[Rfam]
Nucleotides: 146
Base pairs, nucleotide, nucleotide: 001077003074004073005072008069009068010067012062013061015059016058024056025055026054027053028052029051033048035046084139085138086137087136088135089134090133092130093129097128098127099126100125101124106118108116
Number, partner (000 for none) and nucleotide at each position: 001077u002000c003074u004073g005072c006000u007000u008069c009068u010067c011000u012062u013061a014000a015059c016058a017000g018000u019000a020000u021000u022000c023000g024056u025055g026054c027053c028052u029051g030000u031000g032000a033048a034000u035046u036000a037000a038000c039000c040000u041000g042000u043000a044000u045000g046035g047000u048033u049000c050000c051029c052028g053027g054026g055025c056024a057000a058016u059015g060000a061013u062012g063000a064000g065000g066000u067010g068009g069008g070000a071000a072005g073004c074003a075000a076000a077001g078000a079000g080000g081000a082000a083000c084139g085138u086137u087136c088135c089134u090133c091000u092130c093129g094000c095000u096000a097128u098127c099126c100125a101124g102000u103000g104000c105000g106118g107000a108116a109000u110000u111000u112000c113000u114000a115000g116108u117000g118106u119000u120000g121000c122000u123000a124101u125100u126099g127098g128097a129093c130092g131000u132000c133090g134089a135088g136087g137086a138085a139084c140000u141000a142000c143000a144000c145000u146000u

The family of this 146-nucleotide sequence from Hordeum vulgare is "Small nucleolar RNA snoR136". The literature on the family includes a 2009 paper in Nucleic Acids Res by Chen and Wu, "Mining small RNA sequencing data: a new approach to identify small nucleolar RNAs in Arabidopsis". The family's RNA type in Rfam is H/ACA-box small nucleolar RNA. Gene Ontology terms of the family: nucleolus and RNA processing. The organism belongs to Hordeum vulgare, within Eukaryota.